[Rfam]
RNA sequence: AAGGUGUCCUACGCUACAGCCAUGGACUGGUUCAUCGCCGUGUGUUUUGCGUUU
Dot-bracket structure: (((....(..(.(((((.((.(((((....))))).)).))).)))..)..)))